[Rfam]
Nucleotides: 480
Base pairs, nucleotide, nucleotide: 040055041054042053043052044051059324060323061322062321063320070317071316072315073314074313075312076311085303086302087301090299091298095111096110097109098108112285113284114283115282116281117280118279325341326340327339328338330352334349335348336347443461444460445459451478452477453476454475455474456473
Number, partner (000 for none) and nucleotide at each position: 001000u002000u003000a004000c005000u006000c007000c008000a009000a010000g011000a012000a013000u014000g015000c016000u017000g018000c019000a020000a021000u022000a023000u024000a025000u026000g027000c028000u029000a030000a031000a032000a033000u034000a035000c036000g037000u038000u039000c040055g041054u042053c043052u044051u045000u046000g047000u048000a049000a050000a051044a052043a053042g054041a055040c056000u057000a058000u059324g060323g061322u062321a063320a064000u065000a066000g067000a068000g069000g070317g071316u072315u073314g074313c075312u076311u077000a078000u079000a080000a081000u082000a083000g084000a085303u086302a087301u088000u089000u090299u091298g092000g093000a094000c095111u096110c097109g098108g099000a100000g101000g102000c103000g104000g105000u106000a107000c108098c109097c110096g111095a112285c113284a114283c115282c116281u117280c118279c119000a120000c121000c122000a123000u124000c125000u126000u127000a128000u129000u130000u131000u132000u133000g134000u135000u136000u137000a138000c139000a140000c141000u142000c143000a144000a145000g146000u147000a148000g149000u150000u151000a152000a153000u154000c155000u156000u157000u158000a159000g160000a161000a162000g163000c164000u165000u166000u167000u168000a169000a170000g171000u172000u173000a174000u175000g176000a177000u178000a179000c180000a181000c182000a183000a184000g185000u186000a187000u188000u189000u190000u191000c192000a193000u194000a195000g196000c197000a198000c199000u200000u201000u202000a203000g204000c205000u206000a207000u208000a209000g210000a211000u212000g213000c214000a215000g216000g217000u218000c219000u220000g221000u222000u223000u224000u225000c226000u227000a228000u229000u230000u231000c232000u233000a234000a235000g236000c237000u238000u239000u240000g241000a242000u243000u244000c245000u246000a247000a248000a249000u250000a251000a252000c253000a254000g255000c256000c257000u258000u259000g260000g261000u262000g263000u264000a265000a266000a267000a268000u269000a270000u271000a272000c273000u274000a275000g276000u277000a278000u279118g280117g281116g282115g283114g284113u285112g286000a287000a288000a289000c290000a291000g292000c293000u294000u295000c296000g297000a298091c299090a300000u301087a302086u303085a304000u305000u306000u307000a308000a309000a310000a311076a312075a313074g314073c315072a316071a317070u318000u319000g320063u321062u322061a323060c324059c325341c326340a327339g328338g329000a330352u331000g332000a333000u334349a335348c336347c337000u338328u339327c340326u341325g342000u343000g344000a345000u346000g347336g348335g349334u350000c351000a352330a353000a354000a355000a356000a357000a358000g359000u360000a361000a362000a363000u364000g365000c366000a367000a368000a369000u370000a371000a372000a373000g374000u375000u376000u377000u378000u379000g380000c381000a382000c383000c384000u385000g386000c387000u388000a389000a390000c391000g392000a393000a394000a395000a396000u397000u398000u399000c400000g401000a402000c403000a404000g405000c406000a407000g408000a409000g410000c411000u412000u413000u414000c415000g416000c417000u418000c419000u420000a421000g422000c423000u424000g425000c426000u427000u428000a429000a430000u431000u432000u433000c434000g435000g436000c437000a438000a439000a440000g441000c442000g443461c444460g445459g446000u447000u448000c449000u450000u451478g452477g453476g454475g455474u456473u457000u458000u459445c460444c461443g462000g463000g464000c465000a466000a467000c468000a469000g470000a471000a472000a473456a474455g475454c476453c477452c478451c479000u480000u